[Rfam]
RNA sequence: AACCUGUGUAGCCUGGGGGAUUGGCCCCAGGGCAUCCACGAGCUGGCCGCAACUAGCUGAGACCACCGGGA
Numbered sequence: 001a002a003c004c005u006g007u008g009u010a011g012c013c014u015g016g017g018g019g020a021u022u023g024g025c026c027c028c029a030g031g032g033c034a035u036c037c038a039c040g041a042g043c044u045g046g047c048c049g050c051a052a053c054u055a056g057c058u059g060a061g062a063c064c065a066c067c068g069g070g071a
Base pairs, nucleotide, nucleotide: 003069004068006066007065008064012031013030014029015028016027017026018025041058042057043056044055045054046053
Shown here is a 71-nucleotide RNA sequence, a member of the family "2dG-II purine riboswitch aptamer". The sequence is in the family's curated seed alignment. For this family Rfam cites "Bioinformatic analysis of riboswitch structures uncovers variant classes with altered ligand specificity" (Weinberg et al., Proc Natl Acad Sci U S A, 2017). The family's consensus secondary structure is taken from published work. Its Rfam clan is "Purine riboswitches".